RNA sequence: AUUAGUAAUAGAGGUCGCAGAGAUUAUCAGUAGAUAUAUGAAGGACAGGCAAGUCCAAUGCAGUAUAUUGAAAGGGAGAUCUGCCGAAGUUGUAUCCUAAUGCCGAGGGAUGCUGCUGGGGCUGUAGUUAAGAGCUGCAGAACUGUCAUUAUUUUUUAGAAAUAAUGGGGUGCUAUUCAUACU
Numbered sequence: 001a002u003u004a005g006u007a008a009u010a011g012a013g014g015u016c017g018c019a020g021a022g023a024u025u026a027u028c029a030g031u032a033g034a035u036a037u038a039u040g041a042a043g044g045a046c047a048g049g050c051a052a053g054u055c056c057a058a059u060g061c062a063g064u065a066u067a068u069u070g071a072a073a074g075g076g077a078g079a080u081c082u083g084c085c086g087a088a089g090u091u092g093u094a095u096c097c098u099a100a101u102g103c104c105g106a107g108g109g110a111u112g113c114u115g116c117u118g119g120g121g122c123u124g125u126a127g128u129u130a131a132g133a134g135c136u137g138c139a140g141a142a143c144u145g146u147c148a149u150u151a152u153u154u155u156u157u158a159g160a161a162a163u164a165a166u167g168g169g170g171u172g173c174u175a176u177u178c179a180u181a182c183u
Base pairs, nucleotide, nucleotide: 007177008176009175010174011173017084018083019082020081021080024077025076033069034068035067036066037065038064039063088117089116090115092113093112094111095110096109097108098107118144119143122140123139124138125137126136127135128134146168147167148166149165150164151163152162

The record is a 183-nucleotide sequence from Propionigenium maris, which matches "Lysine riboswitch aptamer" in Rfam. A search with the family's covariance model found it, with a score of 114 bits. NCBI's taxonomy places the organism under Bacteria, Fusobacteriati, Fusobacteriaceae, Propionigenium, Propionigenium maris.